Record summary
Bacterial small subunit ribosomal RNA: a 347-nucleotide part of an RNA from Spiroplasma eriocheiris. Clan: SSU clan. Gene Ontology terms of the family: structural constituent of ribosome and ribosome. The family's consensus secondary structure is taken from published work. Lineage of the source: Bacteria > Mycoplasmatota > Entomoplasmatales > Spiroplasmataceae > Spiroplasma.
[Rfam]
RNA sequence: GGCGUAAAGCGUGCGCAGACGGUUUAGCAAGUUUGGGGUUAAAGACUGGGGCUCAACUCCAGUUCGCCUUGAAAACUGUUAGACUAGAGUGUAGGAGAGGUUGAUGGAAUUCCAUGUGUAGCGGUGAAAUGCGUAGAUAUAUGGAGGAACACCAGUGGCGAAGGCGGUCAACUGGCCUAUCACUGACGUUUAGGCACGAAAGCGUGGGGAGCAAAUAGGAUUAGAUACCCUAGUAGUCCACGCCGUAAACGAUGAGUACUAAGUGUCGGACUAAGUUCGGUGCUGCAGCUAACGCAUUAAGUACUCCGCCUGAGUAGUAUGCUCGCAAGAGUGAAACUCAAAGGAAU
Numbered sequence: 001g002g003c004g005u006a007a008a009g010c011g012u013g014c015g016c017a018g019a020c021g022g023u024u025u026a027g028c029a030a031g032u033u034u035g036g037g038g039u040u041a042a043a044g045a046c047u048g049g050g051g052c053u054c055a056a057c058u059c060c061a062g063u064u065c066g067c068c069u070u071g072a073a074a075a076c077u078g079u080u081a082g083a084c085u086a087g088a089g090u091g092u093a094g095g096a097g098a099g100g101u102u103g104a105u106g107g108a109a110u111u112c113c114a115u116g117u118g119u120a121g122c123g124g125u126g127a128a129a130u131g132c133g134u135a136g137a138u139a140u141a142u143g144g145a146g147g148a149a150c151a152c153c154a155g156u157g158g159c160g161a162a163g164g165c166g167g168u169c170a171a172c173u174g175g176c177c178u179a180u181c182a183c184u185g186a187c188g189u190u191u192a193g194g195c196a197c198g199a200a201a202g203c204g205u206g207g208g209g210a211g212c213a214a215a216u217a218g219g220a221u222u223a224g225a226u227a228c229c230c231u232a233g234u235a236g237u238c239c240a241c242g243c244c245g246u247a248a249a250c251g252a253u254g255a256g257u258a259c260u261a262a263g264u265g266u267c268g269g270a271c272u273a274a275g276u277u278c279g280g281u282g283c284u285g286c287a288g289c290u291a292a293c294g295c296a297u298u299a300a301g302u303a304c305u306c307c308g309c310c311u312g313a314g315u316a317g318u319a320u321g322c323u324c325g326c327a328a329g330a331g332u333g334a335a336a337c338u339c340a341a342a343g344g345a346a347u
Base pairs, nucleotide, nucleotide: 001310002309003308009307011197012196013195014194018190019189020188022084023083024082025081026080027079028078030077031076032073033072034071035070036069037068038067039066045063046062047061048060049059050058051057088184089183090182091180092179093178094177095176099173100172101171102170103169104168105167106150110146111145112144113143114142115141116140117139121132122131123130158165159164202243203242204241205240206239207238211237212236216232217231218230219229254306255305256304257303258302259301262284263283264282265281266280267279268278269277270276271275288295289294312339313338314337321332322331323330324329